The family of this 64-nucleotide sequence from Microcaecilia unicolor is "mir-155 microRNA precursor family".

[Rfam]
RNA sequence: AGGUUAAUGCUAAUCGUGAUAGGGGUUUUAAAUGUGAAGAACUCCUACAUCUUAGCAUUAACAU
Numbered sequence: 001a002g003g004u005u006a007a008u009g010c011u012a013a014u015c016g017u018g019a020u021a022g023g024g025g026u027u028u029u030a031a032a033u034g035u036g037a038a039g040a041a042c043u044c045c046u047a048c049a050u051c052u053u054a055g056c057a058u059u060a061a062c063a064u
Stems, first nucleotide, its partner, number of pairs: 004061010020047004025042003
Dot-bracket structure: ...((((((((((......((((.(((............))).))))....))))))))))...
Its family is annotated with miRNA-mediated post-transcriptional gene silencing and RISC complex in the Gene Ontology. The family has 25 seed sequences and 647 matches in Rfam 15.1.